[Rfam]
A member of the RNA family "Streptomyces-metH RNA" from Streptomyces olivochromogenes, 120 nucleotides long. The source organism's lineage runs through Bacteria, Actinomycetota, Actinomycetes, Kitasatosporales and Streptomyces. It scores 100 bits against the family's covariance model.

RNA sequence: CCCGUCCGCCCCGUGGACGGCCCCUGACCCCGUGACGGUGCUCGGGCUACCCUGACGGCGUGCGCCUUCCAUGGGAAGCGCAAAGCCGACAGCCGUCGCACUUCAGGGAGCACCUUCAUG
Numbered sequence: 001c002c003c004g005u006c007c008g009c010c011c012c013g014u015g016g017a018c019g020g021c022c023c024c025u026g027a028c029c030c031c032g033u034g035a036c037g038g039u040g041c042u043c044g045g046g047c048u049a050c051c052c053u054g055a056c057g058g059c060g061u062g063c064g065c066c067u068u069c070c071a072u073g074g075g076a077a078g079c080g081c082a083a084a085g086c087c088g089a090c091a092g093c094c095g096u097c098g099c100a101c102u103u104c105a106g107g108g109a110g111c112a113c114c115u116u117c118a119u120g
Base pairs, nucleotide, nucleotide: 061082062081063080064079066078067077068076069075085099086098088097089096090095
Dot-bracket structure: ............................................................((((.((((.....))))))))..((.(((....))))).....................